[Rfam]
RNA: Small nucleolar RNA R64/Z200 family
Organism: Papaver somniferum
RNA sequence: GUUCUGCAAGGAUGAUUUAUGAAAUUUUCACAUGUCAGACUUCAGAGGUUUUGGAAACAAGAUCUAUGAGAAGACAUUUCAUUAUUCUGAGCAGAC
Numbered sequence: 001g002u003u004c005u006g007c008a009a010g011g012a013u014g015a016u017u018u019a020u021g022a023a024a025u026u027u028u029c030a031c032a033u034g035u036c037a038g039a040c041u042u043c044a045g046a047g048g049u050u051u052u053g054g055a056a057a058c059a060a061g062a063u064c065u066a067u068g069a070g071a072a073g074a075c076a077u078u079u080c081a082u083u084a085u086u087c088u089g090a091g092c093a094g095a096c
Base pairs, nucleotide, nucleotide: 003095004094005093006092007091047064048063049062050061051060052059